[Rfam]
RNA sequence: GGCCAGUGAUGUAUGGUAAUUGUCCGUACCAUUUGAGGAGCUUUAUGCUCCAUUGAUGUUAUAUUUACCUUUAGCUUCUGAGGCCU
Dot-bracket structure: ((((.............................................................................)))).
Numbered sequence: 001g002g003c004c005a006g007u008g009a010u011g012u013a014u015g016g017u018a019a020u021u022g023u024c025c026g027u028a029c030c031a032u033u034u035g036a037g038g039a040g041c042u043u044u045a046u047g048c049u050c051c052a053u054u055g056a057u058g059u060u061a062u063a064u065u066u067a068c069c070u071u072u073a074g075c076u077u078c079u080g081a082g083g084c085c086u
Stems, first nucleotide, its partner, number of pairs: 001085004

Shown here is an 86-nucleotide RNA sequence from Anisodus acutangulus, a member of the family "small nucleolar RNA snoR117".
Rfam classes the family as a C/D-box small nucleolar RNA.
The literature on the family includes a 2009 paper in Nucleic Acids Res by Chen and Wu, "Mining small RNA sequencing data: a new approach to identify small nucleolar RNAs in Arabidopsis".
Gene Ontology terms of the family: RNA processing and nucleolus.
The organism belongs to Anisodus, within Eukaryota.